[Rfam]
RNA sequence: AUAAUACAAUAUUAGAUAUAGAUACGCUAUGCACAGCUAAGGAUAUCUAAACUGUAUUAUAAUCCACGUGGUAGAGGCAUAGUUAGGUUCGCUAUGUGUGCAACUCUUAGUAGCAACUAAUCUAAGCAAGUAAAGAGAAUUAAUUGUUGACCCAACAAUAUGUUAUAGGGUACUUGACAGUCUGAUACUAACUGAACAAUAAGUAUCA
Numbered sequence: 001a002u003a004a005u006a007c008a009a010u011a012u013u014a015g016a017u018a019u020a021g022a023u024a025c026g027c028u029a030u031g032c033a034c035a036g037c038u039a040a041g042g043a044u045a046u047c048u049a050a051a052c053u054g055u056a057u058u059a060u061a062a063u064c065c066a067c068g069u070g071g072u073a074g075a076g077g078c079a080u081a082g083u084u085a086g087g088u089u090c091g092c093u094a095u096g097u098g099u100g101c102a103a104c105u106c107u108u109a110g111u112a113g114c115a116a117c118u119a120a121u122c123u124a125a126g127c128a129a130g131u132a133a134a135g136a137g138a139a140u141u142a143a144u145u146g147u148u149g150a151c152c153c154a155a156c157a158a159u160a161u162g163u164u165a166u167a168g169g170g171u172a173c174u175u176g177a178c179a180g181u182c183u184g185a186u187a188c189u190a191a192c193u194g195a196a197c198a199a200u201a202a203g204u205a206u207c208a
Stems, first nucleotide, its partner, number of pairs: 001060008010051001012050005023039002026037002073107004077097006121138003127176005150171004183208007

The record is a 208-nucleotide RNA, which matches "RAGATH-7 RNA" in Rfam. Rfam's curators put it in the seed alignment. The family's consensus secondary structure is taken from published work. The family's RNA type in Rfam is small RNA.